This 55-nucleotide RNA from Mycobacterium cookii belongs to the Rfam family "F6 TB sRNA". On this family, see Arnvig and Young, Mol Microbiol 2009: "Identification of small RNAs in Mycobacterium tuberculosis".
[Rfam]
RNA sequence: UGGAUAGCUCCGUGUUGCCGUCCGAGCCCCGACCCGAUGGCACGCGGAGCGUCCC
Number, nucleotide and partner (000 for none) at each position: 001u000002g054003g053004a052005u051006a000007g050008c049009u048010c047011c046012g045013u044014g043015u000016u042017g041018c040019c039020g038021u037022c036023c000024g000025a000026g000027c000028c000029c000030c000031g000032a000033c000034c000035c000036g022037a021038u020039g019040g018041c017042a016043c014044g013045c012046g011047g010048a009049g008050c007051g005052u004053c003054c002055c000
It scores 48 bits against the family's covariance model.